[Rfam]
This 92-nucleotide RNA from Actinoplanes teichomyceticus belongs to the Rfam family "ZMP/ZTP riboswitch aptamer (pfl RNA motif)".
RNA sequence: CGGGUGGGCCGUGACUGGCGCGUUCGGAUGGGUAACCAUCGGGGAGCGGCUCCGUCAUCUGUGACGACCUGCCGUGCGCCUGGGCCUCUUCA
Numbered sequence: 001c002g003g004g005u006g007g008g009c010c011g012u013g014a015c016u017g018g019c020g021c022g023u024u025c026g027g028a029u030g031g032g033u034a035a036c037c038a039u040c041g042g043g044g045a046g047c048g049g050c051u052c053c054g055u056c057a058u059c060u061g062u063g064a065c066g067a068c069c070u071g072c073c074g075u076g077c078g079c080c081u082g083g084g085c086c087u088c089u090u091c092a
Stems, first nucleotide, its partner, number of pairs: 003055001006052007015043002017080005028039004071085003